PyrR binding site: a 136-nucleotide sequence from Neobacillus mesonae. Rfam describes the family as follows. This family represents the PyrR binding site and terminator structure. This RNA structure is found upstream of a variety of genes involved in pyrimidine biosynthesis and transport. The alignment also includes a portion of the antiterminator structure.
RNA sequence: GGUACCUUUAAAUUCAGUCCCGUGAGGCUGACAAGGACAACGGAAUUUGUGAUAUAUGGUGGGCUUUGGUUUACCCUGCCCAUUGUUUAUCAUGAUGAAAAAGCUUCUUGUCGGAAACGGCAAGGAGCUUUUUCUU
Numbered sequence: 001g002g003u004a005c006c007u008u009u010a011a012a013u014u015c016a017g018u019c020c021c022g023u024g025a026g027g028c029u030g031a032c033a034a035g036g037a038c039a040a041c042g043g044a045a046u047u048u049g050u051g052a053u054a055u056a057u058g059g060u061g062g063g064c065u066u067u068g069g070u071u072u073a074c075c076c077u078g079c080c081c082a083u084u085g086u087u088u089a090u091c092a093u094g095a096u097g098a099a100a101a102a103g104c105u106u107c108u109u110g111u112c113g114g115a116a117a118c119g120g121c122a123a124g125g126a127g128c129u130u131u132u133u134c135u136u
Base pairs, nucleotide, nucleotide: 005036006035007034008033014031015030016029017028018027019026052090053089054088056086057085058084059083060082061081062080063079064078100131101130102129103128104127105126106125107124108123109122110121111120112119113118
Notes
Taxonomically the source falls in Neobacillus (Bacteria, Bacillati, Bacillota, Bacillaceae). A search with the family's covariance model found it, with a score of 62 bits. For this family Rfam cites "Molecular recognition of pyr mRNA by the Bacillus subtilis attenuation regulatory protein PyrR" (Bonner et al., Nucleic Acids Res, 2001).